This 70-nucleotide RNA from Myotis brandtii belongs to the Rfam family "mir-9223 microRNA precursor family".

RNA sequence: GGCAGUUCUUGGGUGAUGCACCCUGGAAUCGGGCUCCCUCCUCUCCAGGGUAUGUCACCUGAGAACCACU
Numbered sequence: 001g002g003c004a005g006u007u008c009u010u011g012g013g014u015g016a017u018g019c020a021c022c023c024u025g026g027a028a029u030c031g032g033g034c035u036c037c038c039u040c041c042u043c044u045c046c047a048g049g050g051u052a053u054g055u056c057a058c059c060u061g062a063g064a065a066c067c068a069c070u
Stems, first nucleotide, its partner, number of pairs: 002069001005066013020051004031046003
The source organism's lineage runs through Eukaryota, Metazoa, Craniata, Eutheria and Myotis. Gene Ontology terms of the family: RISC complex and miRNA-mediated post-transcriptional gene silencing. It scores 64 bits against the family's covariance model.